[Rfam]
RNA sequence: GGGUAGUCUGAGUACAGUGGUGUUUACAAGUAAUUGAUCACAGCCAGUUACAGAUUCCUUUGUUCCUUCUCUACUCCCACUGCUUCACUUGAUUAGCCUUUA
Numbered sequence: 001g002g003g004u005a006g007u008c009u010g011a012g013u014a015c016a017g018u019g020g021u022g023u024u025u026a027c028a029a030g031u032a033a034u035u036g037a038u039c040a041c042a043g044c045c046a047g048u049u050a051c052a053g054a055u056u057c058c059u060u061u062g063u064u065c066c067u068u069c070u071c072u073a074c075u076c077c078c079a080c081u082g083c084u085u086c087a088c089u090u091g092a093u094u095a096g097c098c099u100u101u102a
Stems, first nucleotide, its partner, number of pairs: 001098002004095005010090002016081005022076001028064002032060002

A member of the RNA family "Y RNA" from Propithecus coquereli, 102 nucleotides long. A search with the family's covariance model found it, with a score of 60 bits. The base pairs follow the family's consensus structure, which is taken from published work. Rfam's curators write: Y RNAs are components of the Ro ribonucleoprotein particle (Ro RNP), in association with Ro60 and La proteins. The Y RNAs and Ro60 and La proteins are well conserved, but the function of the Ro RNP is not known. In humans the RNA component can be one of four small RNAs -- hY1, hY3, hY4 and hY5. These small RNAs are predicted to fold into a conserved secondary structure containing three stem structures. A reference for the family is Chen et al. (2000), "Ro ribonucleoproteins contribute to the resistance of Deinococcus radiodurans to ultraviolet irradiation", Genes Dev. It is annotated as a non-coding RNA gene.